[Rfam]
RNA sequence: AUAAAUCACGGGAAUGAAGUUCUCCCCUGGGAAACCAAAACCGCUUAUUAAGCUGAUGACUUCUGUGAUUAA
Numbered sequence: 001a002u003a004a005a006u007c008a009c010g011g012g013a014a015u016g017a018a019g020u021u022c023u024c025c026c027c028u029g030g031g032a033a034a035c036c037a038a039a040a041c042c043g044c045u046u047a048u049u050a051a052g053c054u055g056a057u058g059a060c061u062u063c064u065g066u067g068a069u070u071a072a
Base pairs, nucleotide, nucleotide: 010026011025012024013023016063017062018061019060020059021058043053044052045051

The record is a 72-nucleotide RNA sequence from Lachnospiraceae bacterium OF09-33XD, which matches "Fluoride riboswitch aptamer (crcB RNA motif)" in Rfam. It scores 48 bits against the family's covariance model. NCBI's taxonomy places the organism under Bacteria, Bacillati, Clostridia, Lachnospirales, Lachnospiraceae.